[Rfam]
RNA sequence: CGAGAUAAAGCCAAACCUGCCGGAAGGCAGGGACGGAAAGCUGCGGGUCUUAGUAGAUAGCCGGGCUGCCUUGA
Numbered sequence: 001c002g003a004g005a006u007a008a009a010g011c012c013a014a015a016c017c018u019g020c021c022g023g024a025a026g027g028c029a030g031g032g033a034c035g036g037a038a039a040g041c042u043g044c045g046g047g048u049c050u051u052a053g054u055a056g057a058u059a060g061c062c063g064g065g066c067u068g069c070c071u072u073g074a
Stems, first nucleotide, its partner, number of pairs: 003071002011036002016031006034060001039067004044063003047058003
This 74-nucleotide sequence from Desulfopila aestuarii belongs to the Rfam family "c-di-GMP-I-GGC riboswitch aptamer". The source organism's lineage runs through Bacteria, Thermodesulfobacteriota, Desulfobulbia, Desulfocapsaceae and Desulfopila aestuarii.